[Rfam]
RNA sequence: GCAUGAUAAAGGCAAACUGAACUGAAAAGUCAGGACGCAAAGCCUCCGGUCUAAUAGCUGCAAUGCUAAUGAUAGCGGGGUUACCAAG
Numbered sequence: 001g002c003a004u005g006a007u008a009a010a011g012g013c014a015a016a017c018u019g020a021a022c023u024g025a026a027a028a029g030u031c032a033g034g035a036c037g038c039a040a041a042g043c044c045u046c047c048g049g050u051c052u053a054a055u056a057g058c059u060g061c062a063a064u065g066c067u068a069a070u071g072a073u074a075g076c077g078g079g080g081u082u083a084c085c086a087a088g
Base pairs, nucleotide, nucleotide: 012038013037017033018032019031020030022029023028041082042081043080044079046078047077048076049073050072051071056067057066058065
The family of this 88-nucleotide sequence from Aeromonas hydrophila is "c-di-GMP-I riboswitch aptamer". Lineage of the source: Bacteria > Pseudomonadati > Pseudomonadota > Aeromonadales > Aeromonas. The sequence is in the family's curated seed alignment.